[Rfam]
RNA sequence: UGACCUUGGAGAUCAAGUAUAGGUGGAGCCUGUGGGUCUGGCGUGAGGCGACCCAUACUUGGUUUCAAGGGUCU
Numbered sequence: 001u002g003a004c005c006u007u008g009g010a011g012a013u014c015a016a017g018u019a020u021a022g023g024u025g026g027a028g029c030c031u032g033u034g035g036g037u038c039u040g041g042c043g044u045g046a047g048g049c050g051a052c053c054c055a056u057a058c059u060u061g062g063u064u065u066c067a068a069g070g071g072u073c074u
Stems, first nucleotide, its partner, number of pairs: 002073006009066006016059002022053003028049004

This 74-nucleotide sequence from Egretta garzetta belongs to the Rfam family "mir-551 microRNA precursor family".
A search with the family's covariance model found it, with a score of 65 bits.
NCBI's taxonomy places the organism under Eukaryota, Teleostomi, Dipnotetrapodomorpha, Neoaves, Egretta.
Pairs were carried over by alignment from the consensus structure, which was predicted with RNAalifold.
The family has 29 seed sequences and 1,097 matches in Rfam 15.1.